RNA sequence: UGCAACACCCAUCAAAGGAGUCGCUUCUCAUCCAGGGCUACCUUACCAUAUUCUGAAUUC
Numbered sequence: 001u002g003c004a005a006c007a008c009c010c011a012u013c014a015a016a017g018g019a020g021u022c023g024c025u026u027c028u029c030a031u032c033c034a035g036g037g038c039u040a041c042c043u044u045a046c047c048a049u050a051u052u053c054u055g056a057a058u059u060c
Stems, first nucleotide, its partner, number of pairs: 017044002020041002023038003027035001

The family of this 60-nucleotide RNA sequence from Gossypium anomalum is "Plastid-psbN 5UTR RNA". Rfam classes the family as a cis-regulatory element. On this family, see Richter et al., Plant Commun 2023: "Retrograde signaling in plants: A critical review focusing on the GUN pathway and beyond". Taxonomically the source falls in Gossypium (Eukaryota, Tracheophyta, Spermatophyta, Mesangiospermae). It scores 63 bits against the family's covariance model. About the family: Plastid psbN is a non-coding RNA (ncRNA) recognised in plastids. It was reported as a conserved 11 stem-loop in the prime untranslated region (5UTR) of psbN genes. It has been reported that the motif is retained in a subset of mature transcripts in barley, which can suggests a possible role in transcript alternative 5 prime processing. The family's consensus secondary structure was predicted with LocARNA.